[Rfam]
RNA sequence: AACAUAAACAUGCUUAUGGCAGAAGCGGGGGACCCAAUUCUUUGGGUUCUUGAUCUAAGAGCCCUUGGGGUGAAGCUACUUCUAGUAGCCGAGUGAACCUUCUACUCGAACCCGACAGCUUACCUCGUGAGGCAAUGGAGGAAUUACUA
Numbered sequence: 001a002a003c004a005u006a007a008a009c010a011u012g013c014u015u016a017u018g019g020c021a022g023a024a025g026c027g028g029g030g031g032a033c034c035c036a037a038u039u040c041u042u043u044g045g046g047u048u049c050u051u052g053a054u055c056u057a058a059g060a061g062c063c064c065u066u067g068g069g070g071u072g073a074a075g076c077u078a079c080u081u082c083u084a085g086u087a088g089c090c091g092a093g094u095g096a097a098c099c100u101u102c103u104a105c106u107c108g109a110a111c112c113c114g115a116c117a118g119c120u121u122a123c124c125u126c127g128u129g130a131g132g133c134a135a136u137g138g139a140g141g142a143a144u145u146a147c148u149a
Base pairs, nucleotide, nucleotide: 011134012133013132014131025128026127027126028125029124030123035067036066068113069112070111076088077087078086079085091107092106093105094104
RNA: c-di-AMP riboswitch aptamer (ydaO/yuaA leader)